Background
This 158-nucleotide RNA from Paenibacillus uliginis belongs to the Rfam family "FMN riboswitch aptamer (RFN element)". It scores 115 bits against the family's covariance model.
[Rfam]
RNA sequence: AUGGAUCUUCGGGGUAAGGUGAAAUUCCUAACCGGCGGUGAUGGUGCGUUACUUGUGAACGUGCUUUAGCCCGCGACUCGCUGUUUCGAGAUUGAGAUGGCGACUGACUUGGUGUAAUUCCAAGGCCGACGGUAUAGUCCGGAUGGGAGAAGAUCAAA
Numbered sequence: 001a002u003g004g005a006u007c008u009u010c011g012g013g014g015u016a017a018g019g020u021g022a023a024a025u026u027c028c029u030a031a032c033c034g035g036c037g038g039u040g041a042u043g044g045u046g047c048g049u050u051a052c053u054u055g056u057g058a059a060c061g062u063g064c065u066u067u068a069g070c071c072c073g074c075g076a077c078u079c080g081c082u083g084u085u086u087c088g089a090g091a092u093u094g095a096g097a098u099g100g101c102g103a104c105u106g107a108c109u110u111g112g113u114g115u116a117a118u119u120c121c122a123a124g125g126c127c128g129a130c131g132g133u134a135u136a137g138u139c140c141g142g143a144u145g146g147g148a149g150a151a152g153a154u155c156a157a158a
Base pairs, nucleotide, nucleotide: 004155005154006153007152008151009150010149017029018028019027031138032137033128034127035074036073037072038071069126070125078103079102080101081100082099108124109123110122111121112120130141131140132139